[Rfam]
RNA sequence: GAAAGGUCAUGGAAACAUGGCUGGAUGCUUACAUACCGGCAUCCCAAUUAGG
Numbered sequence: 001g002a003a004a005g006g007u008c009a010u011g012g013a014a015a016c017a018u019g020g021c022u023g024g025a026u027g028c029u030u031a032c033a034u035a036c037c038g039g040c041a042u043c044c045c046a047a048u049u050a051g052g
Base pairs, nucleotide, nucleotide: 005022006021007020008019009018010017011016023044024043025042026041027040028039029038
S4-Clostridia ribosomal protein leader: a 52-nucleotide RNA from Firmicutes bacterium CAG:646. It is annotated as a cis-regulatory leader. The family is grouped with related families in Rfam's "Ribosomal Protein S4 Leader clan".